[Rfam]
RNA: A. fumigatus sRNA Afu_254
RNA sequence: AAAUCAACCUCCAUCCAAUCUCUCCAAACAAUCCUUGUUUAGUAUAUCCCGUAUACUAUCCACCACCAUGUCUCCCUGCGCCUGCAACUGCUGUUCCGGCAACUGCAACUCUUGCUCUUGCAACUCUUGCAAGGUAUAUACAUCCAACCAUCCA
Numbered sequence: 001a002a003a004u005c006a007a008c009c010u011c012c013a014u015c016c017a018a019u020c021u022c023u024c025c026a027a028a029c030a031a032u033c034c035u036u037g038u039u040u041a042g043u044a045u046a047u048c049c050c051g052u053a054u055a056c057u058a059u060c061c062a063c064c065a066c067c068a069u070g071u072c073u074c075c076c077u078g079c080g081c082c083u084g085c086a087a088c089u090g091c092u093g094u095u096c097c098g099g100c101a102a103c104u105g106c107a108a109c110u111c112u113u114g115c116u117c118u119u120g121c122a123a124c125u126c127u128u129g130c131a132a133g134g135u136a137u138a139u140a141c142a143u144c145c146a147a148c149c150a151u152c153c154a
Stems, first nucleotide, its partner, number of pairs: 077101003084094003105130003114121002